[Rfam]
RNA: Lysine riboswitch aptamer
Organism: Thalassotalea algicola
RNA sequence: AGGGCCAGAAGAGGAGCGUUAACCAGGUAGUUAAUGUCAGGAGAUCAAACUCCAAUGACCAUUGAUGAGGGGGAUUAGCGCCGAGAUGAGUGUAUUUUUGAUUGAUGCAUUUGUCGGUUGUUCAGGCUGAAUCCUGACAACUGUCACCCAUUAGGUGGAGAGCUUCUGGCCUU
Numbered sequence: 001a002g003g004g005c006c007a008g009a010a011g012a013g014g015a016g017c018g019u020u021a022a023c024c025a026g027g028u029a030g031u032u033a034a035u036g037u038c039a040g041g042a043g044a045u046c047a048a049a050c051u052c053c054a055a056u057g058a059c060c061a062u063u064g065a066u067g068a069g070g071g072g073g074a075u076u077a078g079c080g081c082c083g084a085g086a087u088g089a090g091u092g093u094a095u096u097u098u099u100g101a102u103u104g105a106u107g108c109a110u111u112u113g114u115c116g117g118u119u120g121u122u123c124a125g126g127c128u129g130a131a132u133c134c135u136g137a138c139a140a141c142u143g144u145c146a147c148c149c150a151u152u153a154g155g156u157g158g159a160g161a162g163c164u165u166c167u168g169g170c171c172u173u
Base pairs, nucleotide, nucleotide: 006168007167008166009165010164011163016081017080018079019078020077021076022075024073030066031065032064033063034062035061036060085115086114087113088112089111090110091109092108093107094106095105096104116142117141118140119139120138122137123136124135125134126133144158145157146156147155148154